Annotation: A member of the RNA family "Small Cajal body specific RNA 6" from Microcebus murinus, 265 nucleotides long. NCBI's taxonomy places the organism under Eukaryota, Metazoa, Chordata, Vertebrata, Microcebus.
RNA sequence: GGUCAAUGAUGAAUAGUAAAAGGUCUGACUCCCAGAUGCCCUCCCUGCAUCCCAACAGUCCCCAGCCACCUCUCUUCUGUCAGGGCCCGGGAGUGCUGUGAUGGGCAGAAGGGCAGCUGACACUCUGUGAUGUCCCUGUUCUGUGUUCCUUGGUGAGCCCAGGGAGGACUCCAUGGUUGGCAGCCAACAGCCCAGUCACAAAGGGAUUUGCUUCCUGGGAGUGCGGGUAUCUGUGGCUAUGAUCUGACCUUUUCAAGCUGAGACC
Numbered sequence: 001g002g003u004c005a006a007u008g009a010u011g012a013a014u015a016g017u018a019a020a021a022g023g024u025c026u027g028a029c030u031c032c033c034a035g036a037u038g039c040c041c042u043c044c045c046u047g048c049a050u051c052c053c054a055a056c057a058g059u060c061c062c063c064a065g066c067c068a069c070c071u072c073u074c075u076u077c078u079g080u081c082a083g084g085g086c087c088c089g090g091g092a093g094u095g096c097u098g099u100g101a102u103g104g105g106c107a108g109a110a111g112g113g114c115a116g117c118u119g120a121c122a123c124u125c126u127g128u129g130a131u132g133u134c135c136c137u138g139u140u141c142u143g144u145g146u147u148c149c150u151u152g153g154u155g156a157g158c159c160c161a162g163g164g165a166g167g168a169c170u171c172c173a174u175g176g177u178u179g180g181c182a183g184c185c186a187a188c189a190g191c192c193c194a195g196u197c198a199c200a201a202a203g204g205g206a207u208u209u210g211c212u213u214c215c216u217g218g219g220a221g222u223g224c225g226g227g228u229a230u231c232u233g234u235g236g237c238u239a240u241g242a243u244c245u246g247a248c249c250u251u252u253u254c255a256a257g258c259u260g261a262g263a264c265c
Stems, first nucleotide, its partner, number of pairs: 001265004033246005041221005047215001059206004063119004069113001076105007084097001127185001129184001131182004143169002146166007
About the family: U88 is small Cajal body specific RNA (scaRNA). scaRNAs are a novel class of small nuclear RNAs which localise to the Cajal bodies. U88 is found associated with both fibrillarin and Gar1p and co-localises with coilin in Cajal bodies. On this family, see Darzacq et al., EMBO J 2002: "Cajal body-specific small nuclear RNAs: a novel class of 2'-O-methylation and pseudouridylation guide RNAs". The family has 17 seed sequences and 1,309 matches in Rfam 15.1. Its family is annotated with RNA processing and nucleolus in the Gene Ontology.